[Rfam]
RNA sequence: GGAGUUGGCCAGACAAUCGCCGCUUUGUCGUUGUGUCCUUGGUUGGGCAGACGGGCAAAGGGGAGGAAAGUCCGGGCUCCAUAGGGCAGGGUGCCAGGUAACGCCUGGGAAGCGAAAGCUUACGACAAGUGCAACAGAGAGCAAACCGCCGAUGGCCUUCGGGCACAGGUAAGGGUGAAAGGGUGCGGUAAGAGCGCACCGCGUGGCAGGUAACUGUUCAUGGCAUGGUAAACUCCACCCGGAGCAAGGCCAAAUAGGCCCCCGUACGGCGCGGCCCGCGUUGGGGGCGGGUAGGCUGCUUGAGCCAUCGGGCGACUGAUGGCCUAGAGGAAUGGUUGUCCACGACAGAACCCGGCUUAUCGGCCAACUCCCUCU
Numbered sequence: 001g002g003a004g005u006u007g008g009c010c011a012g013a014c015a016a017u018c019g020c021c022g023c024u025u026u027g028u029c030g031u032u033g034u035g036u037c038c039u040u041g042g043u044u045g046g047g048c049a050g051a052c053g054g055g056c057a058a059a060g061g062g063g064a065g066g067a068a069a070g071u072c073c074g075g076g077c078u079c080c081a082u083a084g085g086g087c088a089g090g091g092u093g094c095c096a097g098g099u100a101a102c103g104c105c106u107g108g109g110a111a112g113c114g115a116a117a118g119c120u121u122a123c124g125a126c127a128a129g130u131g132c133a134a135c136a137g138a139g140a141g142c143a144a145a146c147c148g149c150c151g152a153u154g155g156c157c158u159u160c161g162g163g164c165a166c167a168g169g170u171a172a173g174g175g176u177g178a179a180a181g182g183g184u185g186c187g188g189u190a191a192g193a194g195c196g197c198a199c200c201g202c203g204u205g206g207c208a209g210g211u212a213a214c215u216g217u218u219c220a221u222g223g224c225a226u227g228g229u230a231a232a233c234u235c236c237a238c239c240c241g242g243a244g245c246a247a248g249g250c251c252a253a254a255u256a257g258g259c260c261c262c263c264g265u266a267c268g269g270c271g272c273g274g275c276c277c278g279c280g281u282u283g284g285g286g287g288c289g290g291g292u293a294g295g296c297u298g299c300u301u302g303a304g305c306c307a308u309c310g311g312g313c314g315a316c317u318g319a320u321g322g323c324c325u326a327g328a329g330g331a332a333u334g335g336u337u338g339u340c341c342a343c344g345a346c347a348g349a350a351c352c353c354g355g356c357u358u359a360u361c362g363g364c365c366a367a368c369u370c371c372c373u374c375u
Stems, first nucleotide, its partner, number of pairs: 001371010011360001012340007020063002023060006068358003072355005077244004084277004089240005094108005109123001110121004124235002129233002131229002146174002148170003153165002156162001182200006201224001202222005207216003248297004258288006268282005304323008